This 143-nucleotide sequence from Dasypus novemcinctus belongs to the Rfam family "Small nucleolar RNA SNORA29".

RNA sequence: UUUCCCAUUUGACUACCACUUUUUCUCUUAAUAAUGGAUUUUAGUGGCUAUGCUUAUGGGAUAAAUGAAAAUUGCCAAAACCUGAAGAGGGAGGAUUUUGUGUGUGUGUCCUCCUCCUAUAUGAAAUGGGUGGUUAGAAAACU
Numbered sequence: 001u002u003u004c005c006c007a008u009u010u011g012a013c014u015a016c017c018a019c020u021u022u023u024u025c026u027c028u029u030a031a032u033a034a035u036g037g038a039u040u041u042u043a044g045u046g047g048c049u050a051u052g053c054u055u056a057u058g059g060g061a062u063a064a065a066u067g068a069a070a071a072u073u074g075c076c077a078a079a080a081c082c083u084g085a086a087g088a089g090g091g092a093g094g095a096u097u098u099u100g101u102g103u104g105u106g107u108g109u110c111c112u113c114c115u116c117c118u119a120u121a122u123g124a125a126a127u128g129g130g131u132g133g134u135u136a137g138a139a140a141a142c143u
Stems, first nucleotide, its partner, number of pairs: 004060004016047004075129003092118004
Background: Taxonomically the source falls in Dasypus (Eukaryota, Chordata, Sarcopterygii, Eutheria). Rfam describes the family as follows. ACA29 is a member of the H/ACA class of snoRNA that guide the sites of modification of uridines to pseudouridines.